[Rfam]
This 381-nucleotide RNA from Streptomyces sp. ICBB 8177 belongs to the Rfam family "transfer-messenger RNA".
RNA sequence: GGGGAUGAUCGGUUUCGACUGCGGUUGUCGAGGCAGGGGAAGCGAGCCGAGGAACGCGGCAAUGAUCUCGUAAACCACGUGCCGCAAAACAAUAAUCGCCAACACCAAGCGCGAUUCCUUCGCCCUCGCUGCCUGAUCUAACAGACAGCGACUUUGCGAAGUGUCAGCCCGGGGCUGUUCCCGACCCGGAUCCUGGCAUCAGCUAGGGAACUCCACCACUGGACCCGGCCACGGGGGCCAGUGGAAAACCACACAGUGGCUGGGCCCGUCGGCGGCUUGUCCGCGUGACUGCCGGGGCCGAGAAAAGCACAGCGGACUGCGCUCGGAGAAGCCCUGGUUCCACACCGUAGGACGCGGGUUCGAUUCCCGCCAUCUCCACGA
Numbered sequence: 001g002g003g004g005a006u007g008a009u010c011g012g013u014u015u016c017g018a019c020u021g022c023g024g025u026u027g028u029c030g031a032g033g034c035a036g037g038g039g040a041a042g043c044g045a046g047c048c049g050a051g052g053a054a055c056g057c058g059g060c061a062a063u064g065a066u067c068u069c070g071u072a073a074a075c076c077a078c079g080u081g082c083c084g085c086a087a088a089a090c091a092a093u094a095a096u097c098g099c100c101a102a103c104a105c106c107a108a109g110c111g112c113g114a115u116u117c118c119u120u121c122g123c124c125c126u127c128g129c130u131g132c133c134u135g136a137u138c139u140a141a142c143a144g145a146c147a148g149c150g151a152c153u154u155u156g157c158g159a160a161g162u163g164u165c166a167g168c169c170c171g172g173g174g175c176u177g178u179u180c181c182c183g184a185c186c187c188g189g190a191u192c193c194u195g196g197c198a199u200c201a202g203c204u205a206g207g208g209a210a211c212u213c214c215a216c217c218a219c220u221g222g223a224c225c226c227g228g229c230c231a232c233g234g235g236g237g238c239c240a241g242u243g244g245a246a247a248a249c250c251a252c253a254c255a256g257u258g259g260c261u262g263g264g265c266c267c268g269u270c271g272g273c274g275g276c277u278u279g280u281c282c283g284c285g286u287g288a289c290u291g292c293c294g295g296g297g298c299c300g301a302g303a304a305a306a307g308c309a310c311a312g313c314g315g316a317c318u319g320c321g322c323u324c325g326g327a328g329a330a331g332c333c334c335u336g337g338u339u340c341c342a343c344a345c346c347g348u349a350g351g352a353c354g355c356g357g358g359u360u361c362g363a364u365u366c367c368c369g370c371c372a373u374c375u376c377c378a379c380g381a
Stems, first nucleotide, its partner, number of pairs: 001377007019350007030340003034336005043325005048070005056085006127150005133144002162198006169189005175183001177211006216244007224236001227261006263299005270294003274289001276287001279317004354370005
Rfam classes the family as a non-coding RNA gene. Lineage of the source: Bacteria > Bacillati > Kitasatosporales > Streptomycetaceae > Streptomyces. Bacterial tmRNA, also known as 10Sa RNA or SsrA, is named for its dual tRNA and mRNA-like properties. Its Rfam clan is "tRNA clan". The family's consensus secondary structure is taken from published work. On this family, see Williams, Nucleic Acids Res 2002: "The tmRNA Website: invasion by an intron".